This 78-nucleotide sequence from Sphingobium sp. CAP-1 belongs to the Rfam family "Makes More Granules Regulator RNA (mmgR)". Gene Ontology terms of the family: DNA-templated transcription, termination, response to nitrogen compound and protein binding. Rfam's curators write: SuhB later renamed mmgR (makes more granules regulator) was a putative non-coding RNA found multiple times in the Agrobacterium tumefaciens genome and related alpha-proteobacteria. On this family, see Ceizel Borella et al., Microbiology 2018: "Expression of the small regulatory RNA gene mmgR is regulated negatively by AniA and positively by NtrC in Sinorhizobium meliloti 2011".
RNA sequence: GGAGCAGGCCUUUCAGGCAUCCUCUCCUAAAAACUUUCAGGGCUGGUCCUCACGGAUCGGCCCUUUUUUUGUUCAAAG
Dot-bracket structure: .......((((...)))).....................(((((((((......)))))))))...............